[Rfam]
RNA sequence: UGUCCCCUGCGGGGCGCGUGAUGCCCAGCAGAAAUUCGAACCGAUACGUCCAUCACGGGGUCCGUUUCGAGCUCCAUGUGCAAGCCCUCCCCUCGCGGGAUGAGGGAAGCCUACGGAACCACGAUUUCGAACCCCACCUGGCUUUUUAGGGUUCAAUGGACGCUAGGCACACGGCCAUGCGGCGGGGGACUU
Numbered sequence: 001u002g003u004c005c006c007c008u009g010c011g012g013g014g015c016g017c018g019u020g021a022u023g024c025c026c027a028g029c030a031g032a033a034a035u036u037c038g039a040a041c042c043g044a045u046a047c048g049u050c051c052a053u054c055a056c057g058g059g060g061u062c063c064g065u066u067u068c069g070a071g072c073u074c075c076a077u078g079u080g081c082a083a084g085c086c087c088u089c090c091c092c093u094c095g096c097g098g099g100a101u102g103a104g105g106g107a108a109g110c111c112u113a114c115g116g117a118a119c120c121a122c123g124a125u126u127u128c129g130a131a132c133c134c135c136a137c138c139u140g141g142c143u144u145u146u147u148a149g150g151g152u153u154c155a156a157u158g159g160a161c162g163c164u165a166g167g168c169a170c171a172c173g174g175c176c177a178u179g180c181g182g183c184g185g186g187g188g189a190c191u192u
Stems, first nucleotide, its partner, number of pairs: 002190009013176003017173003034157002038154005057135003061131001063129002069122001071120001073118001074116001080110002085106005